Overview: Rfam assigns this 90-nucleotide sequence from Paenibacillus wynnii to the family "BsrC". It is annotated as a small RNA.
RNA sequence: UCCUUCCAAUACGACAAAAGCCCUACCUCUCUUUUGUCCUUGCGGUUCCGUGACCGCGCCAGUGUGAAUCGGAUGCUAUGUGUGAAUUUA
Numbered sequence: 001u002c003c004u005u006c007c008a009a010u011a012c013g014a015c016a017a018a019a020g021c022c023c024u025a026c027c028u029c030u031c032u033u034u035u036g037u038c039c040u041u042g043c044g045g046u047u048c049c050g051u052g053a054c055c056g057c058g059c060c061a062g063u064g065u066g067a068a069u070c071g072g073a074u075g076c077u078a079u080g081u082g083u084g085a086a087u088u089u090a
Base pairs, nucleotide, nucleotide: 034067035066036065039062040061041058042057043056044055045054046053047052
Notes: Taxonomically the source falls in Paenibacillus (Bacteria, Bacillati, Caryophanales, Paenibacillaceae). The 301 nucleotide sequence from Kouji Nakamura has been trimmed to a highly conserved ~85 nucleotide long core to form this family. The family has 29 seed sequences and 572 matches in Rfam 15.1. The family's consensus secondary structure was predicted with CMfinder.